A member of the RNA family "U12 minor spliceosomal RNA" from Cimex lectularius, 155 nucleotides long. Taxonomically the source falls in Cimex (Eukaryota, Opisthokonta, Bilateria, Insecta). It scores 114 bits against the family's covariance model. Its family is annotated with mRNA branch site recognition, U12 snRNP and pre-mRNA branch point binding in the Gene Ontology.
RNA sequence: GUGCCUUAAACUAAUGAGUAAGGAAAAUAUAGAGCCUUGGUGAUGCUUGGCUCAGCUAGCAUUACUUAGCAAUUUGUAUUUUUGGAGAGGUACAGGUCGUCCCCUUGAGGCCCUCGUCUACUUUACAGGGGCUUCGGGUGACAGCGAUCUGCCUC
Numbered sequence: 001g002u003g004c005c006u007u008a009a010a011c012u013a014a015u016g017a018g019u020a021a022g023g024a025a026a027a028u029a030u031a032g033a034g035c036c037u038u039g040g041u042g043a044u045g046c047u048u049g050g051c052u053c054a055g056c057u058a059g060c061a062u063u064a065c066u067u068a069g070c071a072a073u074u075u076g077u078a079u080u081u082u083u084g085g086a087g088a089g090g091u092a093c094a095g096g097u098c099g100u101c102c103c104c105u106u107g108a109g110g111c112c113c114u115c116g117u118c119u120a121c122u123u124u125a126c127a128g129g130g131g132c133u134u135c136g137g138g139u140g141a142c143a144g145c146g147a148u149c150u151g152c153c154u155c
Base pairs, nucleotide, nucleotide: 004023005022006021007020008019032053033052034051035050036049039046055070056069057068058067087155088154089153090152091151094150095149096148097147098146099145100144104138105137107135108134109133110132111131113129114128116126117125